[Rfam]
Source information
Eukaryotic large subunit ribosomal RNA: a 391-nucleotide part of an RNA from Corynespora cassiicola. A reference for the family is Yusupov et al. (2001), "Crystal structure of the ribosome at 5.5 A resolution", Science.
RNA sequence: AACUUUACUUUAAUAGUAAUUCCGCUUAGUAUAAAAAAAACUGCAGAUUUAGAUAAUUAGUUUUUACAGCUGUUUAACUAGAUAUUACCGCGAAGCUACUAUCUGCUAAAUUAUAGCUAAAUACCUCUAAGUCAGAAUCUAUACUAAAACGGAGUAAAUACCGCCUAUAUAUUAAAGUCGGAUAUAAAUAGGCUUUUAGCUCUAAAUUUUAGCAGGCUGGUAAUAGCAGUUCUGUAAAAGUUAGAGCUACUAGCUAGCGUAUUAUAAUUUUAUAAUACGCAGAAUUAAAUUCUUUACAGAUAACUUAGUUAUCUAGCCGGGUUAUAUAAGUAGUUAAGUAGCUUUAUAGUUACGAGCUACUAAGCGUAAGCCCGCCGCUAGCUUAGUUAAA
Numbered sequence: 001a002a003c004u005u006u007a008c009u010u011u012a013a014u015a016g017u018a019a020u021u022c023c024g025c026u027u028a029g030u031a032u033a034a035a036a037a038a039a040a041c042u043g044c045a046g047a048u049u050u051a052g053a054u055a056a057u058u059a060g061u062u063u064u065u066a067c068a069g070c071u072g073u074u075u076a077a078c079u080a081g082a083u084a085u086u087a088c089c090g091c092g093a094a095g096c097u098a099c100u101a102u103c104u105g106c107u108a109a110a111u112u113a114u115a116g117c118u119a120a121a122u123a124c125c126u127c128u129a130a131g132u133c134a135g136a137a138u139c140u141a142u143a144c145u146a147a148a149a150c151g152g153a154g155u156a157a158a159u160a161c162c163g164c165c166u167a168u169a170u171a172u173u174a175a176a177g178u179c180g181g182a183u184a185u186a187a188a189u190a191g192g193c194u195u196u197u198a199g200c201u202c203u204a205a206a207u208u209u210u211a212g213c214a215g216g217c218u219g220g221u222a223a224u225a226g227c228a229g230u231u232c233u234g235u236a237a238a239a240g241u242u243a244g245a246g247c248u249a250c251u252a253g254c255u256a257g258c259g260u261a262u263u264a265u266a267a268u269u270u271u272a273u274a275a276u277a278c279g280c281a282g283a284a285u286u287a288a289a290u291u292c293u294u295u296a297c298a299g300a301u302a303a304c305u306u307a308g309u310u311a312u313c314u315a316g317c318c319g320g321g322u323u324a325u326a327u328a329a330g331u332a333g334u335u336a337a338g339u340a341g342c343u344u345u346a347u348a349g350u351u352a353c354g355a356g357c358u359a360c361u362a363a364g365c366g367u368a369a370g371c372c373c374g375c376c377g378c379u380a381g382c383u384u385a386g387u388u389a390a391a
Base pairs, nucleotide, nucleotide: 004158005157006156007155008154009153010152011151014146015145016144017143019049021047022046024044025043050105051104052103053102054101058098059097060096065092067090069088071084072083073082074081075080107141108140114134116132117131118130165282166281168279170277288388289387290386291385292308293307313381314380315379316378317377319373320372321371323366330360331359332358333357335356338353339352340351341350342349
Dot-bracket structure: ...((((((((..((((.(.((.((.................)).)).)(((((...(((....(.(.(.(((((....)))))...).).)...)))..))))).((.....(.(((...........))).).....)).))))....))))))))......((.(.(..........................................................................................................).).)).....((((((.............))....(((((.(((.(......((((.(..(((((......)))))..))))).....)....)))...)))))...))))...